[Rfam]
RNA sequence: GGCCCAAAUCUGAAAUAGAGCAGAUUGAUAGGAUCAAAUGGCCACACUAAUCUACUCUACUUCAAGUUUGUGCCC
Numbered sequence: 001g002g003c004c005c006a007a008a009u010c011u012g013a014a015a016u017a018g019a020g021c022a023g024a025u026u027g028a029u030a031g032g033a034u035c036a037a038a039u040g041g042c043c044a045c046a047c048u049a050a051u052c053u054a055c056u057c058u059a060c061u062u063c064a065a066g067u068u069u070g071u072g073c074c075c
Stems, first nucleotide, its partner, number of pairs: 001074003005070005011064004016059005022053002025050003029046001032043001034041002